[Rfam]
The record is a 32-nucleotide RNA from Eleutherodactylus coqui, which matches "L31-Firmicutes ribosomal protein leader" in Rfam.
A search with the family's covariance model found it, with a score of 34 bits.
On this family, see Eckert and Weinberg, BMC Microbiol 2020: "Discovery of 20 novel ribosomal leader candidates in bacteria and archaea".
The family is grouped with related families in Rfam's "Ribosomal Protein L31 Leader clan".
The organism belongs to Eleutherodactylus, within Eukaryota.

RNA sequence: CUUUGAAUUAAAAUAAAUCAAGGCGAAAGGAG
Numbered sequence: 001c002u003u004u005g006a007a008u009u010a011a012a013a014u015a016a017a018u019c020a021a022g023g024c025g026a027a028a029g030g031a032g
Base pairs, nucleotide, nucleotide: 001023002022003021004020005019008016009015